Ribosomal protein L20 leader: a 112-nucleotide sequence from Tepidibacillus fermentans. Pairs were carried over by alignment from the consensus structure, which was predicted with CMfinder.
[Rfam]
RNA sequence: AUAAUCAAGCAGAAGCGCCCGCUUCUCACCUUAUUGACAAGGGUCAAUGGGUUAAUAUGAACAUGAUGGUUUAUUAAGUGUGGGCGUGUUGUGUCUACACUUUUUCUUUUUU
Numbered sequence: 001a002u003a004a005u006c007a008a009g010c011a012g013a014a015g016c017g018c019c020c021g022c023u024u025c026u027c028a029c030c031u032u033a034u035u036g037a038c039a040a041g042g043g044u045c046a047a048u049g050g051g052u053u054a055a056u057a058u059g060a061a062c063a064u065g066a067u068g069g070u071u072u073a074u075u076a077a078g079u080g081u082g083g084g085c086g087u088g089u090u091g092u093g094u095c096u097a098c099a100c101u102u103u104u105u106c107u108u109u110u111u112u
Base pairs, nucleotide, nucleotide: 011026012025013024014023015022016021028052029051030050034047035046036045037044038043079099080098081097082096083095084094085093086092087091